[Rfam]
About this RNA:
The record is a 75-nucleotide RNA, which matches "freshwater-2 RNA" in Rfam. Rfam classes the family as a cis-regulatory element.
RNA sequence: ACUCUCAUGGUGAGAGUUUAUGCGGUCCCCGCCGCGUACCGGCUAGAACCCGGCUUAUAAAGGAGAAAAACAAUG
Numbered sequence: 001a002c003u004c005u006c007a008u009g010g011u012g013a014g015a016g017u018u019u020a021u022g023c024g025g026u027c028c029c030c031g032c033c034g035c036g037u038a039c040c041g042g043c044u045a046g047a048a049c050c051c052g053g054c055u056u057a058u059a060a061a062g063g064a065g066a067a068a069a070a071c072a073a074u075g
Stems, first nucleotide, its partner, number of pairs: 001017006019038007039053004